RNA sequence: CGAAUCCGCGCGGGAGAGUUCCAGCCGUCGUGCUGGACGCCGAAGGAGCAAGUUCCUCCCUUGAAUCUCUCAGGCCCCGUACCGCGCGGGUGAG
Numbered sequence: 001c002g003a004a005u006c007c008g009c010g011c012g013g014g015a016g017a018g019u020u021c022c023a024g025c026c027g028u029c030g031u032g033c034u035g036g037a038c039g040c041c042g043a044a045g046g047a048g049c050a051a052g053u054u055c056c057u058c059c060c061u062u063g064a065a066u067c068u069c070u071c072a073g074g075c076c077c078c079g080u081a082c083c084g085c086g087c088g089g090g091u092g093a094g
Stems, first nucleotide, its partner, number of pairs: 006089008020037004039075003042071002046069003052062001